Small nucleolar RNA Z247: a 139-nucleotide RNA from Anisodus acutangulus. NCBI's taxonomy places the organism under Eukaryota, Spermatophyta, Solanales, Solanoideae, Anisodus. A search with the family's covariance model found it, with a score of 56 bits. On this family, see Chen et al., Nucleic Acids Res 2003: "The high diversity of snoRNAs in plants: identification and comparative study of 120 snoRNA genes from Oryza sativa". Pairs were carried over by alignment from the consensus structure, which was predicted with PFOLD.

[Rfam]
RNA sequence: CCUCUCAAUCAAGAUGAUUUAAUCCUUCAUAUUCUUAAUGGAUUAGGAUCUGAUUAUGAUGCUUUAGUUGUUUCAAUUACUUCCAGGACUGAGCCUAUUACAUUUACUAAUCUUAAUGGUCUAUUAUUGAGUUAUGAGU
Number, nucleotide and partner (000 for none) at each position: 001c000002c000003u000004c138005u137006c136007a135008a000009u000010c000011a000012a000013g000014a000015u000016g000017a000018u000019u000020u000021a000022a000023u000024c000025c000026u000027u000028c000029a000030u000031a000032u000033u000034c000035u000036u000037a000038a000039u000040g000041g000042a000043u000044u000045a000046g000047g000048a000049u000050c000051u000052g000053a000054u000055u000056a000057u000058g000059a000060u000061g000062c000063u000064u000065u000066a000067g000068u000069u000070g000071u000072u000073u000074c000075a000076a000077u000078u000079a000080c000081u000082u000083c000084c000085a000086g000087g000088a108089c000090u106091g105092a104093g103094c000095c000096u000097a000098u000099u000100a000101c000102a000103u093104u092105u091106a090107c000108u088109a000110a000111u000112c000113u000114u000115a000116a000117u000118g000119g000120u000121c000122u000123a000124u000125u000126a000127u000128u000129g000130a000131g000132u000133u000134a000135u007136g006137a005138g004139u000